[Rfam]
RNA: Purine riboswitch aptamer
RNA sequence: UACAAUUAAAGAUAAAAUCCUCGUAUAAUUUGAGAAUAGGGCUCAAUAGUUUCUACCCAUCACCGUAAAUGAUGGACUAUGAGGGAAGAUGGUUACUUU
Numbered sequence: 001u002a003c004a005a006u007u008a009a010a011g012a013u014a015a016a017a018u019c020c021u022c023g024u025a026u027a028a029u030u031u032g033a034g035a036a037u038a039g040g041g042c043u044c045a046a047u048a049g050u051u052u053c054u055a056c057c058c059a060u061c062a063c064c065g066u067a068a069a070u071g072a073u074g075g076a077c078u079a080u081g082a083g084g085g086a087a088g089a090u091g092g093u094u095a096c097u098u099u
Stems, first nucleotide, its partner, number of pairs: 018085008030046005057075006